A member of the RNA family "mir-574 microRNA precursor family" from Myotis myotis, 81 nucleotides long.
Its family is annotated with miRNA-mediated post-transcriptional gene silencing and RISC complex in the Gene Ontology.
The family has 6 seed sequences and 4,084 matches in Rfam 15.1.
NCBI's taxonomy places the organism under Eukaryota, Deuterostomia, Craniata, Gnathostomata, Myotis.
[Rfam]
RNA sequence: AGGCCUGGAGAGAGAAGCAGGGUCUGUUCCAUAGCCUCCGUGGCAGCUGUUGAUCAGCCCUUGCCUCUCUCUCUCCAGGCC
Numbered sequence: 001a002g003g004c005c006u007g008g009a010g011a012g013a014g015a016a017g018c019a020g021g022g023u024c025u026g027u028u029c030c031a032u033a034g035c036c037u038c039c040g041u042g043g044c045a046g047c048u049g050u051u052g053a054u055c056a057g058c059c060c061u062u063g064c065c066u067c068u069c070u071c072u073c074u075c076c077a078g079g080c081c
Stems, first nucleotide, its partner, number of pairs: 008073008017064004022059001024057003028053002032049004